[Rfam]
RNA sequence: CUCUUAUCCCGAGCUGGUGGAGGGGUCAGGCCCUAUGAAACCCGGCAACCUCAAUAAGAUAGAGAUGUAACACUUAUUGAAAAGGUGCCCAACCUGAGACAGGGAUUUUCCCUGAUUGAUAAGAG
Numbered sequence: 001c002u003c004u005u006a007u008c009c010c011g012a013g014c015u016g017g018u019g020g021a022g023g024g025g026u027c028a029g030g031c032c033c034u035a036u037g038a039a040a041c042c043c044g045g046c047a048a049c050c051u052c053a054a055u056a057a058g059a060u061a062g063a064g065a066u067g068u069a070a071c072a073c074u075u076a077u078u079g080a081a082a083a084g085g086u087g088c089c090c091a092a093c094c095u096g097a098g099a100c101a102g103g104g105a106u107u108u109u110c111c112c113u114g115a116u117u118g119a120u121a122a123g124a125g
Stems, first nucleotide, its partner, number of pairs: 001125008013043001016042003022033003030094001044089004049085002051080008100114006
RNA: SAM riboswitch aptamer (S box leader)